[Rfam]
RNA sequence: CGGACCAAGUAGAAGCAUCCCGCUUCUCACCUGUAGCGACGCACAAGCUGUUGGCAGGUUAACGACAAUUACAUGUAUGUUAAUGUGCGUUAAGGAGCGGGAGACAUUUAUGUCUUUCGCUCUUUUUUGCUUGG
Numbered sequence: 001c002g003g004a005c006c007a008a009g010u011a012g013a014a015g016c017a018u019c020c021c022g023c024u025u026c027u028c029a030c031c032u033g034u035a036g037c038g039a040c041g042c043a044c045a046a047g048c049u050g051u052u053g054g055c056a057g058g059u060u061a062a063c064g065a066c067a068a069u070u071a072c073a074u075g076u077a078u079g080u081u082a083a084u085g086u087g088c089g090u091u092a093a094g095g096a097g098c099g100g101g102a103g104a105c106a107u108u109u110a111u112g113u114c115u116u117u118c119g120c121u122c123u124u125u126u127u128u129g130c131u132u133g134g
Stems, first nucleotide, its partner, number of pairs: 011027006029059003038052003041048002096121010
Ribosomal protein L20 leader: a 134-nucleotide sequence from Staphylococcus massiliensis. The literature on the family includes a 1994 paper in Prog Nucleic Acid Res Mol Biol by Zengel and Lindahl, "Diverse mechanisms for regulating ribosomal protein synthesis in Escherichia coli". From the family's description: This family is a putative r-protein leader autoregulatory structure found in B. subtilis and other low-GC Gram-positive bacteria. It is located in the 5' untranslated regions of mRNAs encoding initiation factor 3 followed by ribosomal proteins L35 and L20 (infC-rpmI-rplT). A Rho-independent transcription terminator structure that is probably involved in regulation is included at the 3' end. It scores 75 bits against the family's covariance model. By type it is a cis-regulatory leader.